[Rfam]
RNA sequence: CGAGCCGGCGGAGGUCGCGGUGAGCGCGACGGUGCUCCGGUCGACGGCGCUGCUGGGCGGCACCAACCCGGUGCAAGAGGGCGGGCCGCAGGAGGAAGGCGGGGCGGUGUGGUUCCGACCGGCGGC
Dot-bracket structure: ...(((((..............................................................................................................)))))...
RNA: Small nucleolar RNA Z206